[Rfam]
RNA sequence: UUGCAUGUUGCAUCCCCGGGCUUCUCUGAUAGAUGGAUGACGCGAAAGCCCCAAUGCUCGUGCAAAAUUCCACGCCGUUCGUGUUGCAGUUCAGCCUUGAUUUCUUCCAUGGCUGUGAUCUGUGUCAAAUCAACUGCUAAAUUC
Numbered sequence: 001u002u003g004c005a006u007g008u009u010g011c012a013u014c015c016c017c018g019g020g021c022u023u024c025u026c027u028g029a030u031a032g033a034u035g036g037a038u039g040a041c042g043c044g045a046a047a048g049c050c051c052c053a054a055u056g057c058u059c060g061u062g063c064a065a066a067a068u069u070c071c072a073c074g075c076c077g078u079u080c081g082u083g084u085u086g087c088a089g090u091u092c093a094g095c096c097u098u099g100a101u102u103u104c105u106u107c108c109a110u111g112g113c114u115g116u117g118a119u120c121u122g123u124g125u126c127a128a129a130u131c132a133a134c135u136g137c138u139a140a141a142u143u144c
Base pairs, nucleotide, nucleotide: 003063004062005061006060007059010057011056018051019050020049021048022047023045024044026042074137075136077134078133079132082127083126085124086123087122088121089120093114094113095112